RNA: Alphaproteobacterial ar14
Organism: Stappia taiwanensis
RNA sequence: GAUCACGUUCAAAGGGAUAGACCUCCUCCCCUGUCCCUUUAGCGUGCCCGGCGAGGCAUCCUCCUCCCAGCCUCGUCCGGAAAUAGCGUCGCCCGCCGGUUCUCCUCCCUCCGGCGGGCGAUCGCU
Numbered sequence: 001g002a003u004c005a006c007g008u009u010c011a012a013a014g015g016g017a018u019a020g021a022c023c024u025c026c027u028c029c030c031c032u033g034u035c036c037c038u039u040u041a042g043c044g045u046g047c048c049c050g051g052c053g054a055g056g057c058a059u060c061c062u063c064c065u066c067c068c069a070g071c072c073u074c075g076u077c078c079g080g081a082a083a084u085a086g087c088g089u090c091g092c093c094c095g096c097c098g099g100u101u102c103u104c105c106u107c108c109c110u111c112c113g114g115c116g117g118g119c120g121a122u123c124g125c126u
Base pairs, nucleotide, nucleotide: 007043008042009041012039013038014037015036016035017034018033048079050077051076052075053074054073055072056071057070089121090120091119092118093117094116095115096114097113098112099111